The family of this 130-nucleotide sequence from Candidatus Enterococcus dunnyi is "Ribosomal protein L10 leader". The literature on the family includes a 2015 paper in Nucleic Acids Res by Yakhnin et al., "Ribosomal protein L10(L12)4 autoregulates expression of the Bacillus subtilis rplJL operon by a transcription attenuation mechanism". Lineage of the source: Bacteria > Bacillota > Lactobacillales > Enterococcaceae > Enterococcus. By type it is a cis-regulatory leader. Pairs were carried over by alignment from the consensus structure, which was predicted with CMfinder.

RNA sequence: GGUUAAUAAUUAACUGUACCGAAGACAGUAGGUGACGCAAGUCUUAAUUUCCUACCGAGGACAAUGAUUGAUGAAAUAGAUCAAUGGUCCCUCUAUGUCAACGGUGGCAUGGAGUUUUGUUGUUUUACAC
Number, nucleotide and partner (000 for none) at each position: 001g000002g000003u000004u000005a000006a000007u000008a000009a000010u000011u000012a000013a000014c000015u000016g000017u000018a000019c000020c000021g000022a000023a000024g000025a000026c000027a000028g055029u054030a053031g052032g051033u000034g043035a042036c041037g000038c000039a000040a000041g036042u035043c034044u000045u000046a000047a000048u000049u000050u000051c032052c031053u030054a029055c028056c000057g000058a000059g000060g000061a000062c000063a000064a000065u000066g000067a000068u000069u000070g000071a000072u000073g000074a000075a000076a000077u000078a000079g000080a000081u000082c000083a000084a000085u000086g000087g000088u000089c000090c000091c114092u113093c112094u111095a110096u109097g108098u107099c106100a000101a000102c000103g000104g000105u000106g099107g098108c097109a096110u095111g094112g093113a092114g091115u000116u000117u000118u000119g000120u000121u000122g000123u000124u000125u000126u000127a000128c000129a000130c000